[Rfam]
RNA sequence: GUUUCGAUGGCAGUGCCGUUAGUGAUUGUGCGGUUACAAAUACAAUCAGCUAACUACACUGCCUGCGAACC
Numbered sequence: 001g002u003u004u005c006g007a008u009g010g011c012a013g014u015g016c017c018g019u020u021a022g023u024g025a026u027u028g029u030g031c032g033g034u035u036a037c038a039a040a041u042a043c044a045a046u047c048a049g050c051u052a053a054c055u056a057c058a059c060u061g062c063c064u065g066c067g068a069a070c071c
Stems, first nucleotide, its partner, number of pairs: 003069004009063002012060004018054005023048008
Shown here is a 71-nucleotide sequence from Pomatostomus ruficeps, a member of the family "mir-34 microRNA precursor family".
The base pairs follow the family's consensus structure, which was predicted with RNAalifold.
Rfam links the family to the GO terms RISC complex and miRNA-mediated post-transcriptional gene silencing.
The source organism's lineage runs through Eukaryota, Opisthokonta, Dipnotetrapodomorpha, Sylvioidea and Pomatostomus.
The family has 113 seed sequences and 2,256 matches in Rfam 15.1.